The record is a 255-nucleotide RNA sequence from Sphaerisporangium rubeum, which matches "Actinobacteria sRNA Ms_IGR-5" in Rfam. The match comes from Rfam's covariance-model search (55 bits). It is annotated as a small RNA. The organism belongs to Sphaerisporangium, within Bacteria.
RNA sequence: ACGCAGAAAGGAGGUGGUCCGAACAAUGGUUAGUCAUUAUUGGACUAGCGAGGUGGCUGUCCGCUAGGACAUCGCCUGAGUCAGGACCUUCCGUCCAGACGGCCUGCCUCCUUGUGGGGUGCGGGUGGCGUCCGGCGUAAUCCAAGGCAGACACCGGAACCCCGGGCAGCCGGCGGGGGAAGUCGUGGGACUUCUUCCAUGGUCCAGCCGGCCCGCCUCCUUCGUGGAGGUGGAGCGCGCCCGGGGUUUUUCCUU
Numbered sequence: 001a002c003g004c005a006g007a008a009a010g011g012a013g014g015u016g017g018u019c020c021g022a023a024c025a026a027u028g029g030u031u032a033g034u035c036a037u038u039a040u041u042g043g044a045c046u047a048g049c050g051a052g053g054u055g056g057c058u059g060u061c062c063g064c065u066a067g068g069a070c071a072u073c074g075c076c077u078g079a080g081u082c083a084g085g086a087c088c089u090u091c092c093g094u095c096c097a098g099a100c101g102g103c104c105u106g107c108c109u110c111c112u113u114g115u116g117g118g119g120u121g122c123g124g125g126u127g128g129c130g131u132c133c134g135g136c137g138u139a140a141u142c143c144a145a146g147g148c149a150g151a152c153a154c155c156g157g158a159a160c161c162c163c164g165g166g167c168a169g170c171c172g173g174c175g176g177g178g179g180a181a182g183u184c185g186u187g188g189g190a191c192u193u194c195u196u197c198c199a200u201g202g203u204c205c206a207g208c209c210g211g212c213c214c215g216c217c218u219c220c221u222u223c224g225u226g227g228a229g230g231u232g233g234a235g236c237g238c239g240c241c242c243g244g245g246g247u248u249u250u251u252c253c254u255u
Stems, first nucleotide, its partner, number of pairs: 013061006062137004067132002070130001072128007156250012